[Rfam]
RNA: LOOT RNA
RNA sequence: GACCUAAGUCCUAGAUUAUCCCAGGAUAUGGUCUAAAAACUCUCCCGAGUAUUGAGCUCCUCGUCAGAGCACUCGGGAGAGUCAUAUCCCGAAAGGGAUAUGGGUGGCGAAAGCCAUC
Numbered sequence: 001g002a003c004c005u006a007a008g009u010c011c012u013a014g015a016u017u018a019u020c021c022c023a024g025g026a027u028a029u030g031g032u033c034u035a036a037a038a039a040c041u042c043u044c045c046c047g048a049g050u051a052u053u054g055a056g057c058u059c060c061u062c063g064u065c066a067g068a069g070c071a072c073u074c075g076g077g078a079g080a081g082u083c084a085u086a087u088c089c090c091g092a093a094a095g096g097g098a099u100a101u102g103g104g105u106g107g108c109g110a111a112a113g114c115c116a117u118c
Stems, first nucleotide, its partner, number of pairs: 001033004009026004014021001040081011056070004083102008103118006